[Rfam]
SAM riboswitch aptamer (S box leader): a 132-nucleotide sequence from Micromonospora sp. ATCC 39149. The base pairs follow the family's consensus structure, which is taken from published work. Rfam links the family to the GO term regulation of gene expression. From the family's description: The SAM riboswitch is found upstream of a number of genes which code for proteins involved in methionine or cysteine biosynthesis in Gram-positive bacteria. The SAM riboswitch acts at the level of transcription termination control. The predicted structure consists of a complex stem-loop region followed by a single stem loop terminator region. An alternative and mutually exclusive form involves bases in the 3' segment of helix 1 with those in the 5' region of helix 5 to form a structure termed the anti-terminator form. The organism belongs to Micromonospora, within Bacteria. The sequence is in the family's curated seed alignment.
RNA sequence: ACCUCAUCCAGAGGGGCAGAGGGAUACGGCCCGACGAAGCCCCGGCAACCACCCGCACGUUCGAUGACGAGCGGCGCGGACAGGUGCCAAUUCCGUCCCCGCCGCAGGGUGCGAUGCGGGGAAAGAUGAGAG
Numbered sequence: 001a002c003c004u005c006a007u008c009c010a011g012a013g014g015g016g017c018a019g020a021g022g023g024a025u026a027c028g029g030c031c032c033g034a035c036g037a038a039g040c041c042c043c044g045g046c047a048a049c050c051a052c053c054c055g056c057a058c059g060u061u062c063g064a065u066g067a068c069g070a071g072c073g074g075c076g077c078g079g080a081c082a083g084g085u086g087c088c089a090a091u092u093c094c095g096u097c098c099c100c101g102c103c104g105c106a107g108g109g110u111g112c113g114a115u116g117c118g119g120g121g122a123a124a125g126a127u128g129a130g131a132g
Stems, first nucleotide, its partner, number of pairs: 003130006013043005021032003026096004044088004049084002052079002092124001097121006